[Rfam]
mir-802 microRNA precursor family: a 93-nucleotide RNA from Cricetulus griseus. The source organism's lineage runs through Eukaryota, Teleostomi, Glires, Myomorpha and Cricetulus. The base pairs follow the family's consensus structure, which was predicted with RNAalifold. Rfam links the family to the GO terms RISC complex and miRNA-mediated post-transcriptional gene silencing.
RNA sequence: GUUCUAUUAUUUGCAAUCAGUAACAAAGAUUCAUCCUGUGUCAAUUGCACAACACGGAGAGUCUUUGUCACUCAGUGUGAUUAAUAGCCUUCC
Dot-bracket structure: ...((((((.(((((.(.(((.((((((((((.((((((((.......)).))).))))))))))))).))).).))))).))))))......